RNA sequence: UUUACUCCAUGAAGAUGUCCUCUGAAGCCACUUGUGAGGGGGGCGUCUGAUCCACUGUAAA
Numbered sequence: 001u002u003u004a005c006u007c008c009a010u011g012a013a014g015a016u017g018u019c020c021u022c023u024g025a026a027g028c029c030a031c032u033u034g035u036g037a038g039g040g041g042g043g044c045g046u047c048u049g050a051u052c053c054a055c056u057g058u059a060a061a
Base pairs, nucleotide, nucleotide: 001061002060003059004058005057014047015046016045017044018043019042020041021040022039023038029036030035
Record summary: Rfam assigns this 61-nucleotide RNA sequence from Neogobius melanostomus to the family "Selenocysteine insertion sequence 1". The family's consensus secondary structure is taken from published work. A search with the family's covariance model found it, with a score of 38 bits. The organism belongs to Neogobius, within Eukaryota. The family's RNA type in Rfam is cis-regulatory element.